[Rfam]
RNA sequence: CUGGAGCCUGACGCAUGAUUCGCAACGUUCGUAUCGCCGGUCUACUACUACUAAACGCAUCCUCAUUGCGCGGUGGACUGGUGGGCGACAAACAGAGUUAAGUCAGCUUCCGGUUAAAACAGAGAACCCGCGCCAAUGCGCGGGUUUUUUU
Numbered sequence: 001c002u003g004g005a006g007c008c009u010g011a012c013g014c015a016u017g018a019u020u021c022g023c024a025a026c027g028u029u030c031g032u033a034u035c036g037c038c039g040g041u042c043u044a045c046u047a048c049u050a051c052u053a054a055a056c057g058c059a060u061c062c063u064c065a066u067u068g069c070g071c072g073g074u075g076g077a078c079u080g081g082u083g084g085g086c087g088a089c090a091a092a093c094a095g096a097g098u099u100a101a102g103u104c105a106g107c108u109u110c111c112g113g114u115u116a117a118a119a120c121a122g123a124g125a126a127c128c129c130g131c132g133c134c135a136a137u138g139c140g141c142g143g144g145u146u147u148u149u150u151u
Base pairs, nucleotide, nucleotide: 004110006108008106009105010104012102015099016097026087027086028085029084030083031082032081048076049075050074051073052072056070057069058068059067123148124147125146126145127144128143129142130141131140132139133138